[Rfam]
RNA sequence: AUACUUACCUGGCGUAGGAGAAACCGUGAUCACUCAGGCGGUUCUCCCAGGGCGAGGCCUUCCCAUUGCACUGCGGGCGGGUUGACCCUUGCGAUUAUCCCUAAUGUGGAUAACUCGGACGCGUAAUUUUUGGUAGUGAGGAACUGCGUACGCGCUGUCCCUCU
Numbered sequence: 001a002u003a004c005u006u007a008c009c010u011g012g013c014g015u016a017g018g019a020g021a022a023a024c025c026g027u028g029a030u031c032a033c034u035c036a037g038g039c040g041g042u043u044c045u046c047c048c049a050g051g052g053c054g055a056g057g058c059c060u061u062c063c064c065a066u067u068g069c070a071c072u073g074c075g076g077g078c079g080g081g082u083u084g085a086c087c088c089u090u091g092c093g094a095u096u097a098u099c100c101c102u103a104a105u106g107u108g109g110a111u112a113a114c115u116c117g118g119a120c121g122c123g124u125a126a127u128u129u130u131u132g133g134u135a136g137u138g139a140g141g142a143a144c145u146g147c148g149u150a151c152g153c154g155c156u157g158u159c160c161c162u163c164u
Base pairs, nucleotide, nucleotide: 012122013121014120015119017047018046019045020044021043023042024041025040026039027038049090050089051088052087054086056083057082058081060079062077063076064075092117093116094115095113096112097111099109100108138163139162140161141160143158146155147154148153

The family of this 164-nucleotide RNA sequence from Chrysodeixis includens is "U1 spliceosomal RNA". The family has 100 seed sequences and 40,184 matches in Rfam 15.1. U1 is a small nuclear RNA (snRNA) component of the spliceosome (involved in pre-mRNA splicing). Its 5' end forms complementary base pairs with the 5' splice junction, thus defining the 5' donor site of an intron. There are significant differences in sequence and secondary structure between metazoan and yeast U1 snRNAs, the latter being much longer (568 nucleotides as compared to 164 nucleotides in human). On this family, see Zwieb, Nucleic Acids Res 1997: "The uRNA database". The family's RNA type in Rfam is spliceosomal small nuclear RNA.